The family of this 117-nucleotide sequence from Azonexus hydrophilus is "ALIL pseudoknot". Rfam links the family to the GO term positive regulation of translational frameshifting. A search with the family's covariance model found it, with a score of 110 bits. NCBI's taxonomy places the organism under Bacteria, Pseudomonadota, Betaproteobacteria, Azonexaceae, Azonexus.
RNA sequence: UGCGUUUUUCGCCCAGGCGGAGCUCGACCGCCGCUUCAAAUCGUGAAGGCCUUUAUCGACGAGCACCGGGAACGUUUCGGGGUCGAGCCAAUCUGUCAGCAAUUGCAGGUUGCCCCG
Numbered sequence: 001u002g003c004g005u006u007u008u009u010c011g012c013c014c015a016g017g018c019g020g021a022g023c024u025c026g027a028c029c030g031c032c033g034c035u036u037c038a039a040a041u042c043g044u045g046a047a048g049g050c051c052u053u054u055a056u057c058g059a060c061g062a063g064c065a066c067c068g069g070g071a072a073c074g075u076u077u078c079g080g081g082g083u084c085g086a087g088c089c090a091a092u093c094u095g096u097c098a099g100c101a102a103u104u105g106c107a108g109g110u111u112g113c114c115c116c117g
Base pairs, nucleotide, nucleotide: 016032017031018030019029020028078117079116080115081114082113089112090111092109093108094107095106096105098103